[Rfam]
Rfam assigns this 86-nucleotide sequence from Eurypyga helias to the family "Small nucleolar RNA SNORD127". A search with the family's covariance model found it, with a score of 53 bits. The family has 13 seed sequences and 541 matches in Rfam 15.1. The literature on the family includes a 2006 paper in Nucleic Acids Res by Yang et al., "snoSeeker: an advanced computational package for screening of guide and orphan snoRNA genes in the human genome". Rfam links the family to the GO terms RNA processing and nucleolus. Rfam classes the family as a C/D-box small nucleolar RNA.

RNA sequence: CGGCAACGAUGAUGACAGGAAUUGUGGCUGCGUGCGGCGUCCCGUCGCCGCGUGGAGACACCAGUCCCUCUAAGCUGACGUUGCCC
Numbered sequence: 001c002g003g004c005a006a007c008g009a010u011g012a013u014g015a016c017a018g019g020a021a022u023u024g025u026g027g028c029u030g031c032g033u034g035c036g037g038c039g040u041c042c043c044g045u046c047g048c049c050g051c052g053u054g055g056a057g058a059c060a061c062c063a064g065u066c067c068c069u070c071u072a073a074g075c076u077g078a079c080g081u082u083g084c085c086c
Stems, first nucleotide, its partner, number of pairs: 002085006